Rfam assigns this 110-nucleotide RNA sequence from Bacillus sp. FJAT-50079 to the family "SAM riboswitch aptamer (S box leader)". The base pairs follow the family's consensus structure, which is taken from published work.
RNA sequence: UUCUUAUCCAGAGAGGUGGAGGGACUGACCCGACGAAUCCUCAGCAACCAGCAAUACGAAUUGUAUGGUGCUAAUUUCAGAAGAAUACCGAUGUAUUCUAAAGAUGAGAC
Numbered sequence: 001u002u003c004u005u006a007u008c009c010a011g012a013g014a015g016g017u018g019g020a021g022g023g024a025c026u027g028a029c030c031c032g033a034c035g036a037a038u039c040c041u042c043a044g045c046a047a048c049c050a051g052c053a054a055u056a057c058g059a060a061u062u063g064u065a066u067g068g069u070g071c072u073a074a075u076u077u078c079a080g081a082a083g084a085a086u087a088c089c090g091a092u093g094u095a096u097u098c099u100a101a102a103g104a105u106g107a108g109a110c
Stems, first nucleotide, its partner, number of pairs: 002109007013042004021031003025080004043072004048068002050064001053061001076102001082099006